[Rfam]
RNA: MIR5269 microRNA precursor family
Organism: Medicago truncatula
RNA sequence: UUGGGUGAAAUCAAUGUAGAACCUACGCUUUGAAAAUGAAACUUACAUAAAGUGGUGGGACAUACAUUGAUUUCACCCAA
Numbered sequence: 001u002u003g004g005g006u007g008a009a010a011u012c013a014a015u016g017u018a019g020a021a022c023c024u025a026c027g028c029u030u031u032g033a034a035a036a037u038g039a040a041a042c043u044u045a046c047a048u049a050a051a052g053u054g055g056u057g058g059g060a061c062a063u064a065c066a067u068u069g070a071u072u073u074c075a076c077c078c079a080a
Base pairs, nucleotide, nucleotide: 001080002079003078004077005076006075007074008073009072010071011070012069013068014067015066016065017064018063023058024057025056026054027053028052029051030050031049032048